[Rfam]
RNA sequence: UGUCUCAAAGAUUAAGCCAUGCAUGUCUCAGUACAUACCAAAAUAAGGUGAAACCGCGAAAGGCUCAUUAUAUCAGUUAUGGUUCAUUAGAUCGUACCAACAUUUACUUGGAUAACUGUGGUAAUUCUAGAGCUAAUACAUGCAUACAGAACUCCGACCGGAGACGGAAGGAGCGCUUUUAUUAGAUCAAAACCAACACGGGCGGCGGGGGCCGGCGGCGCCUCGCGCGUUGUCGCGUUCUCGCCGUCUAAACAUAGCUCGCACGACGAAUCUGAAUAACUUUAUGCCGAUCGCACGGUCACGCACCGGCGACGCAUCUUUCAAAUGUCUGCCUUAUCAACUUUCGAUGGUAGGUUAUGCGCCUACCAUGGUUGUAACGGGUAACGGGGAAUCAGGGUUCGAUUCCGGAGAGGGAGCCUGAGAAACGGCUACCACAUCCAAGGAAGGCAGCAGGCGCGCAAAUUACCCACUCCCGGCACGGGGAGGUAGUGACGAAAAAUAACGAUACGGGACUCAUCCGAGGCCCCGUGAUCGGAAUGAGCACACUUUAAAUCCUUUAACGAGGAUCAA
Numbered sequence: 001u002g003u004c005u006c007a008a009a010g011a012u013u014a015a016g017c018c019a020u021g022c023a024u025g026u027c028u029c030a031g032u033a034c035a036u037a038c039c040a041a042a043a044u045a046a047g048g049u050g051a052a053a054c055c056g057c058g059a060a061a062g063g064c065u066c067a068u069u070a071u072a073u074c075a076g077u078u079a080u081g082g083u084u085c086a087u088u089a090g091a092u093c094g095u096a097c098c099a100a101c102a103u104u105u106a107c108u109u110g111g112a113u114a115a116c117u118g119u120g121g122u123a124a125u126u127c128u129a130g131a132g133c134u135a136a137u138a139c140a141u142g143c144a145u146a147c148a149g150a151a152c153u154c155c156g157a158c159c160g161g162a163g164a165c166g167g168a169a170g171g172a173g174c175g176c177u178u179u180u181a182u183u184a185g186a187u188c189a190a191a192a193c194c195a196a197c198a199c200g201g202g203c204g205g206c207g208g209g210g211g212c213c214g215g216c217g218g219c220g221c222c223u224c225g226c227g228c229g230u231u232g233u234c235g236c237g238u239u240c241u242c243g244c245c246g247u248c249u250a251a252a253c254a255u256a257g258c259u260c261g262c263a264c265g266a267c268g269a270a271u272c273u274g275a276a277u278a279a280c281u282u283u284a285u286g287c288c289g290a291u292c293g294c295a296c297g298g299u300c301a302c303g304c305a306c307c308g309g310c311g312a313c314g315c316a317u318c319u320u321u322c323a324a325a326u327g328u329c330u331g332c333c334u335u336a337u338c339a340a341c342u343u344u345c346g347a348u349g350g351u352a353g354g355u356u357a358u359g360c361g362c363c364u365a366c367c368a369u370g371g372u373u374g375u376a377a378c379g380g381g382u383a384a385c386g387g388g389g390a391a392u393c394a395g396g397g398u399u400c401g402a403u404u405c406c407g408g409a410g411a412g413g414g415a416g417c418c419u420g421a422g423a424a425a426c427g428g429c430u431a432c433c434a435c436a437u438c439c440a441a442g443g444a445a446g447g448c449a450g451c452a453g454g455c456g457c458g459c460a461a462a463u464u465a466c467c468c469a470c471u472c473c474c475g476g477c478a479c480g481g482g483g484a485g486g487u488a489g490u491g492a493c494g495a496a497a498a499a500u501a502a503c504g505a506u507a508c509g510g511g512a513c514u515c516a517u518c519c520g521a522g523g524c525c526c527c528g529u530g531a532u533c534g535g536a537a538u539g540a541g542c543a544c545a546c547u548u549u550a551a552a553u554c555c556u557u558u559a560a561c562g563a564g565g566a567u568c569a570a
Stems, first nucleotide, its partner, number of pairs: 003497001005495002009490001010457001016455003020452003025057002031054002037049002064410003074331003079326002083324002089319004107142001109140002116132002119129003152173004158167002179279005194265001248257003291312004296308004333381003340372003347369008385407004389400004412433002415430003435446001437444002463488001465487003471483005503534003506530006513522003541561001543558001545557001
RNA: Eukaryotic small subunit ribosomal RNA, nucleotides 33 to 602
Organism: Photinus pyralis